Rfam assigns this 118-nucleotide sequence from Pseudomonas fluvialis to the family "Ribosomal S15 leader". The E. coli Ribosomal S15 gene 5' UTR can form two alternative structures. One that is a series of three hairpins, The other includes a pseudoknot. This structure causes translational regulation of the S15 protein. A reference for the family is Benard et al. (1996), "Pseudoknot and translational control in the expression of the S15 ribosomal protein", Biochimie. It is annotated as a cis-regulatory leader.
RNA sequence: UCAUGCCUCUUUUUAAAACACGGGAGCAGUCCCGGCCUGUUCACUCUAGGAGCCCAUUACCAUGGCACUGAGCGUUGAAGAAAAAGCCCAGAUCGUAAACGAGUACAAGCAAGCUGAA
Number, nucleotide and partner (000 for none) at each position: 001u000002c000003a000004u000005g000006c000007c026008u025009c024010u023011u022012u000013u000014u000015a000016a000017a000018a000019c000020a000021c000022g011023g010024g009025a008026g007027c000028a000029g000030u000031c000032c000033c000034g000035g000036c000037c000038u000039g000040u000041u000042c000043a000044c000045u000046c072047u071048a000049g069050g068051a000052g066053c000054c000055c000056a000057u000058u000059a000060c000061c000062a000063u000064g000065g000066c052067a000068c050069u049070g000071a047072g046073c000074g000075u000076u000077g000078a000079a000080g000081a000082a000083a000084a000085a000086g000087c000088c000089c000090a000091g000092a000093u000094c000095g000096u000097a000098a000099a000100c000101g000102a000103g000104u000105a000106c000107a000108a000109g000110c000111a000112a000113g000114c000115u000116g000117a000118a000